The record is a 69-nucleotide RNA sequence from Acipenser ruthenus, which matches "mir-338 microRNA precursor family" in Rfam. Pairs were carried over by alignment from the consensus structure, which was predicted with RNAalifold. It scores 85 bits against the family's covariance model.

[Rfam]
RNA sequence: CCUGUAACAAUAUCCUGGUGCUGUCUGAGUGUGACUCAUAGACUCCAGCAUCAGUGAUUUUGUUGCAGU
Numbered sequence: 001c002c003u004g005u006a007a008c009a010a011u012a013u014c015c016u017g018g019u020g021c022u023g024u025c026u027g028a029g030u031g032u033g034a035c036u037c038a039u040a041g042a043c044u045c046c047a048g049c050a051u052c053a054g055u056g057a058u059u060u061u062g063u064u065g066c067a068g069u
Stems, first nucleotide, its partner, number of pairs: 006064005012058003015054009